[Rfam]
RNA sequence: AUCGAGUCUAGAGUCACAUCUUAACACUUUGAAAUUGUUCUGGUGUGCUAGAGAUUUCGUAGAUUAAACUCUUGGCUUAUUCAUUGGUUGUAGCAACGCUUGCCCAACCAGUCGCCAGCUUUGAAACAAAU
Numbered sequence: 001a002u003c004g005a006g007u008c009u010a011g012a013g014u015c016a017c018a019u020c021u022u023a024a025c026a027c028u029u030u031g032a033a034a035u036u037g038u039u040c041u042g043g044u045g046u047g048c049u050a051g052a053g054a055u056u057u058c059g060u061a062g063a064u065u066a067a068a069c070u071c072u073u074g075g076c077u078u079a080u081u082c083a084u085u086g087g088u089u090g091u092a093g094c095a096a097c098g099c100u101u102g103c104c105c106a107a108c109c110a111g112u113c114g115c116c117a118g119c120u121u122u123g124a125a126a127c128a129a130a131u
Stems, first nucleotide, its partner, number of pairs: 003059004007054003012049002015047006023039004071123001074120004083112005089106002093103002

This 131-nucleotide sequence from Polypterus senegalus belongs to the Rfam family "Small nucleolar RNA SNORA3/SNORA45 family". The family has 6 seed sequences and 2,080 matches in Rfam 15.1. The family's RNA type in Rfam is H/ACA-box small nucleolar RNA. Rfam describes the family as follows. The members of this family belong to the H/ACA class of snoRNAs which are thought to guide the sites of modification of uridines to pseudouridines. This family includes mouse snoMBI-28 and human homologues ACA3 (SNORA3) and ACA3-2 (SNORA45). The organism belongs to Polypterus, within Eukaryota. For this family Rfam cites "RNomics: an experimental approach that identifies 201 candidates for novel, small, non-messenger RNAs in mouse" (Huttenhofer et al., EMBO J, 2001).